[Rfam]
RNA sequence: GGUUUCCAUGGGUGCAAAUCCAAUCACCUUAAUUUGAGAUGAUAAACAAUCCCCCAUUGCUAUCAAAUGGGUAUAUUCAUUAAACGGGGUAAAUACUAU
Number, nucleotide and partner (000 for none) at each position: 001g000002g000003u000004u000005u000006c000007c000008a000009u023010g000011g021012g020013u000014g000015c000016a000017a000018a000019u000020c012021c011022a000023a009024u000025c000026a000027c000028c000029u000030u000031a000032a000033u000034u000035u000036g000037a000038g000039a000040u000041g000042a000043u000044a000045a000046a000047c000048a000049a000050u000051c000052c089053c088054c087055c086056a080057u079058u000059g077060c000061u075062a074063u073064c070065a000066a000067a000068u000069g000070g064071g000072u000073a063074u062075a061076u000077u059078c000079a057080u056081u000082a000083a000084a000085c000086g055087g054088g053089g052090u000091a000092a000093a000094u000095a000096c000097u000098a000099u000